[Rfam]
RNA sequence: AACUUAAAAGGCGAUGGAGUUCGCCAUAACUGCUGAAAGGCUAAUGACUCCUACCGGUGA
Numbered sequence: 001a002a003c004u005u006a007a008a009a010g011g012c013g014a015u016g017g018a019g020u021u022c023g024c025c026a027u028a029a030c031u032g033c034u035g036a037a038a039g040g041c042u043a044a045u046g047a048c049u050c051c052u053a054c055c056g057g058u059g060a
Base pairs, nucleotide, nucleotide: 010025011024012023013022016051017050018049019048020047021046032041033040034039
RNA: Fluoride riboswitch aptamer (crcB RNA motif)